[Rfam]
RNA sequence: AAUCAAGAGUUCCAACGCAAAACCCUGGUUUGUUGGACGGCAACCCUCUCGCUGUAGCGGGGUGCCCCAGGUGAGGAUUCGGCCCGGCCGGCGCAGAUGACCGGAGGGCAAGUACGGCAC
Numbered sequence: 001a002a003u004c005a006a007g008a009g010u011u012c013c014a015a016c017g018c019a020a021a022a023c024c025c026u027g028g029u030u031u032g033u034u035g036g037a038c039g040g041c042a043a044c045c046c047u048c049u050c051g052c053u054g055u056a057g058c059g060g061g062g063u064g065c066c067c068c069a070g071g072u073g074a075g076g077a078u079u080c081g082g083c084c085c086g087g088c089c090g091g092c093g094c095a096g097a098u099g100a101c102c103g104g105a106g107g108g109c110a111a112g113u114a115c116g117g118c119a120c
Base pairs, nucleotide, nucleotide: 001079002078003077004076009038011037012036013035014034015033016032021030022029039066040065041064044062045061046060048057049056082109083108084107085106088104089103090102091101
Dot-bracket structure: ((((....(.((((((....((......)).)))))))(((..(((.((......))..))).))).........))))..((((..((((.........)))).))))...........
The record is a 120-nucleotide RNA sequence from Arthrobacter crusticola, which matches "SAM (S-adenosyl methionine) riboswitch aptamer" in Rfam. Pairs were carried over by alignment from the consensus structure, which is taken from published work. NCBI's taxonomy places the organism under Bacteria, Actinomycetota, Actinomycetes, Micrococcaceae, Arthrobacter. The family has 40 seed sequences and 2,360 matches in Rfam 15.1.